The family of this 214-nucleotide part of an RNA from Claviceps purpurea is "Ascomycota telomerase RNA". It scores 262 bits against the family's covariance model. On this family, see Qi et al., Nucleic Acids Res 2013: "The common ancestral core of vertebrate and fungal telomerase RNAs". Clan: Telomerase clan. Gene Ontology terms of the family: telomere maintenance via telomerase, telomerase activity and telomerase catalytic core complex. The organism belongs to Claviceps purpurea, within Eukaryota.
RNA sequence: UGCCUCUCAGUUUCCCGAAACUCGUUUUCCGAAAGGAAUGUCUAUUGCAGACCCCCCUCCCCAGACUCGUUAUACAUGACCUGCUGCGCCCGAACCUGUAUCAGGACUUCGUUGUUUGCAGCAUAUGGACCUGUCGUGCAUUGCGUUGUCGGUAACUAGACGAUACGGCCUGACCGGGGGGAAUGAGCGUCGGAACUUAACCCUAAGCUUACCA
Numbered sequence: 001u002g003c004c005u006c007u008c009a010g011u012u013u014c015c016c017g018a019a020a021c022u023c024g025u026u027u028u029c030c031g032a033a034a035g036g037a038a039u040g041u042c043u044a045u046u047g048c049a050g051a052c053c054c055c056c057c058u059c060c061c062c063a064g065a066c067u068c069g070u071u072a073u074a075c076a077u078g079a080c081c082u083g084c085u086g087c088g089c090c091c092g093a094a095c096c097u098g099u100a101u102c103a104g105g106a107c108u109u110c111g112u113u114g115u116u117u118g119c120a121g122c123a124u125a126u127g128g129a130c131c132u133g134u135c136g137u138g139c140a141u142u143g144c145g146u147u148g149u150c151g152g153u154a155a156c157u158a159g160a161c162g163a164u165a166c167g168g169c170c171u172g173a174c175c176g177g178g179g180g181g182a183a184u185g186a187g188c189g190u191c192g193g194a195a196c197u198u199a200a201c202c203c204u205a206a207g208c209u210u211a212c213c214a
Stems, first nucleotide, its partner, number of pairs: 009197003015193004